RNA sequence: GAAAAAAAUGCCCUGUGGCAUAUGCCGCAGGGUCCCUUCCAUUCUUUUUCGGACAAGCCGAAAAAGAGAAGGAAAAAAGGGAGAGGAGAAACCGGAGGAAGAACUUAUGGGGAACGUAAGUCUUCUCCGUGG
Numbered sequence: 001g002a003a004a005a006a007a008a009u010g011c012c013c014u015g016u017g018g019c020a021u022a023u024g025c026c027g028c029a030g031g032g033u034c035c036c037u038u039c040c041a042u043u044c045u046u047u048u049u050c051g052g053a054c055a056a057g058c059c060g061a062a063a064a065a066g067a068g069a070a071g072g073a074a075a076a077a078a079g080g081g082a083g084a085g086g087a088g089a090a091a092c093c094g095g096a097g098g099a100a101g102a103a104c105u106u107a108u109g110g111g112g113a114a115c116g117u118a119a120g121u122c123u124u125c126u127c128c129g130u131g132g
Base pairs, nucleotide, nucleotide: 010033011032012031013030014029015028016027017026018025034081035080036079037078038077043067044066045065046064047063048062049061050060051059052058093129094128095127096126098125099124100123101122103121104120105119106118107117
RNA: ylbH leader
Organism: Anoxybacillus flavithermus